Annotation: The record is a 75-nucleotide RNA sequence from Myiagra hebetior, which matches "Small nucleolar RNA SNORD26" in Rfam. Taxonomically the source falls in Myiagra (Eukaryota, Dinosauria, Neognathae, Monarchidae). Pairs were carried over by alignment from the consensus structure, which was predicted with PFOLD. The match comes from Rfam's covariance-model search (52 bits). Its family is annotated with RNA processing and nucleolus in the Gene Ontology.
[Rfam]
RNA sequence: CUGCGGGGAUGAUCCCUGAACUCUCUCUUGCUGAUGAACUGGUGAAAGAAACUCCUAAAACAGGCUCUGAGUGGC
Numbered sequence: 001c002u003g004c005g006g007g008g009a010u011g012a013u014c015c016c017u018g019a020a021c022u023c024u025c026u027c028u029u030g031c032u033g034a035u036g037a038a039c040u041g042g043u044g045a046a047a048g049a050a051a052c053u054c055c056u057a058a059a060a061c062a063g064g065c066u067c068u069g070a071g072u073g074g075c
Base pairs, nucleotide, nucleotide: 001074002073003072004071